[Rfam]
RNA: c-di-GMP-II-GAG riboswitch aptamer
RNA sequence: UCACGAAGUGGUGGCGUUGAUCCUUCCCGGUGCAUCGGUCGCCACAUACCGGGUGGGGGAGCCAGAGGCGAGACCGACCACGGCGGGA
Numbered sequence: 001u002c003a004c005g006a007a008g009u010g011g012u013g014g015c016g017u018u019g020a021u022c023c024u025u026c027c028c029g030g031u032g033c034a035u036c037g038g039u040c041g042c043c044a045c046a047u048a049c050c051g052g053g054u055g056g057g058g059g060a061g062c063c064a065g066a067g068g069c070g071a072g073a074c075c076g077a078c079c080a081c082g083g084c085g086g087g088a
Base pairs, nucleotide, nucleotide: 001088002087004085005084008081009080010079011078013063014062015061022057023056024055026053027052028051029050037075038074039071040070041069042068043067